permuted transfer-messenger RNA: a 219-nucleotide RNA sequence from Roseomonas acroporae.
RNA sequence: GGCGAUAAACGGAUCGUGGAAUAAGCGUUGCGGACCCGGGGGCAGUGCCCGGCGCCUCCACCAACCAUCCCCGCCUUGUCGGGCGGGGACGAUGGGGGCGAAACAGGCUCGACGCGCGCGGUAAAGACGCUCCUUUUGCCCGGCAUGGUACCGCCGUCAUCGGACCAAAUCACAAGUGCCAACGAUAACAGCCGCGAGGCUGUGGCGCUCGCUGCCUAG
Numbered sequence: 001g002g003c004g005a006u007a008a009a010c011g012g013a014u015c016g017u018g019g020a021a022u023a024a025g026c027g028u029u030g031c032g033g034a035c036c037c038g039g040g041g042g043c044a045g046u047g048c049c050c051g052g053c054g055c056c057u058c059c060a061c062c063a064a065c066c067a068u069c070c071c072c073g074c075c076u077u078g079u080c081g082g083g084c085g086g087g088g089a090c091g092a093u094g095g096g097g098g099c100g101a102a103a104c105a106g107g108c109u110c111g112a113c114g115c116g117c118g119c120g121g122u123a124a125a126g127a128c129g130c131u132c133c134u135u136u137u138g139c140c141c142g143g144c145a146u147g148g149u150a151c152c153g154c155c156g157u158c159a160u161c162g163g164a165c166c167a168a169a170u171c172a173c174a175a176g177u178g179c180c181a182a183c184g185a186u187a188a189c190a191g192c193c194g195c196g197a198g199g200c201u202g203u204g205g206c207g208c209u210c211g212c213u214g215c216c217u218a219g
Stems, first nucleotide, its partner, number of pairs: 001140005015129003026118003030115003036052005053100007141156004
A reference for the family is Williams and Bartel (1996), "Phylogenetic analysis of tmRNA secondary structure", RNA. Rfam classes the family as a non-coding RNA gene. The match comes from Rfam's covariance-model search (144 bits).